[Rfam]
The record is a 79-nucleotide RNA from Alligator sinensis, which matches "Mammalian CPEB3 ribozyme" in Rfam. It scores 44 bits against the family's covariance model. The organism belongs to Alligator, within Eukaryota.

RNA sequence: AGAGGUCACACGUUUGAGGCCGCAGCAGAAGUGCUCAGGGCACGGCCUGUCACAUUUCAAUUAAUCUGUGAAUUCUGCU
Numbered sequence: 001a002g003a004g005g006u007c008a009c010a011c012g013u014u015u016g017a018g019g020c021c022g023c024a025g026c027a028g029a030a031g032u033g034c035u036c037a038g039g040g041c042a043c044g045g046c047c048u049g050u051c052a053c054a055u056u057u058c059a060a061u062u063a064a065u066c067u068g069u070g071a072a073u074u075c076u077g078c079u
Stems, first nucleotide, its partner, number of pairs: 018047004024079007031043003051068002054065003
Dot-bracket structure: .................[[[[..((((((((((.......)))]]]]...((.(((......))).))....)))))))